[Rfam]
MIR8024 microRNA precursor family: a 104-nucleotide RNA sequence from Solanum tuberosum. Lineage of the source: Eukaryota > Tracheophyta > Spermatophyta > eudicotyledons > Solanum. It scores 61 bits against the family's covariance model.
RNA sequence: UUAAUGAAUUUGAAGACCUCAACUUGCAGACUUGGAGGACUUUGAAGAUGCAGCAGACUUGACGAUUUCAACUUGCAUACUUGAAGAAAUUGAAGACUUCAACU
Numbered sequence: 001u002u003a004a005u006g007a008a009u010u011u012g013a014a015g016a017c018c019u020c021a022a023c024u025u026g027c028a029g030a031c032u033u034g035g036a037g038g039a040c041u042u043u044g045a046a047g048a049u050g051c052a053g054c055a056g057a058c059u060u061g062a063c064g065a066u067u068u069c070a071a072c073u074u075g076c077a078u079a080c081u082u083g084a085a086g087a088a089a090u091u092g093a094a095g096a097c098u099u100c101a102a103c104u
Stems, first nucleotide, its partner, number of pairs: 001102002004099001006097001009094005017086001019084003025077004032071006